[Rfam]
RNA sequence: GCCCUCGUGGUGUAAUGGUCAGCACACUCGGUGCGCAUUCGAGAGGUCCGUGGUUUGAAUCCCGGCGAGGGCA
Numbered sequence: 001g002c003c004c005u006c007g008u009g010g011u012g013u014a015a016u017g018g019u020c021a022g023c024a025c026a027c028u029c030g031g032u033g034c035g036c037a038u039u040c041g042a043g044a045g046g047u048c049c050g051u052g053g054u055u056u057g058a059a060u061c062c063c064g065g066c067g068a069g070g071g072c073a
Stems, first nucleotide, its partner, number of pairs: 001072007010025004027043005048065003052062002

tRNA: a 73-nucleotide RNA sequence from Stegodyphus mimosarum. Pairs were carried over by alignment from the consensus structure, which is taken from published work. The family has 954 seed sequences and 5,335,975 matches in Rfam 15.1. About the family: Transfer RNA (tRNA) molecules are approximately 80 nucleotides in length. By type it is a transfer RNA. Taxonomically the source falls in Stegodyphus (Eukaryota, Bilateria, Araneae, Eresidae).